mraW RNA: a 104-nucleotide RNA sequence from Candidatus Protofrankia datiscae. Rfam 15.1 lists 851 matches to the family in 821 species. The organism belongs to Protofrankia, within Bacteria. By type it is a cis-regulatory element.
[Rfam]
RNA sequence: CAUCAGGUGUGCGCCGAGGUCUCCCCCCGCUCCAUACCGGACACCACUUCCCCGGUGUCCGGUGGCGUGAGCGGGGCGGGACCUGGGCACACGCCGGGCCCUCG
Numbered sequence: 001c002a003u004c005a006g007g008u009g010u011g012c013g014c015c016g017a018g019g020u021c022u023c024c025c026c027c028c029g030c031u032c033c034a035u036a037c038c039g040g041a042c043a044c045c046a047c048u049u050c051c052c053c054g055g056u057g058u059c060c061g062g063u064g065g066c067g068u069g070a071g072c073g074g075g076g077c078g079g080g081a082c083c084u085g086g087g088c089a090c091a092c093g094c095c096g097g098g099c100c101c102u103c104g
Stems, first nucleotide, its partner, number of pairs: 010091002013088003018083002021080003025076007032067001035064010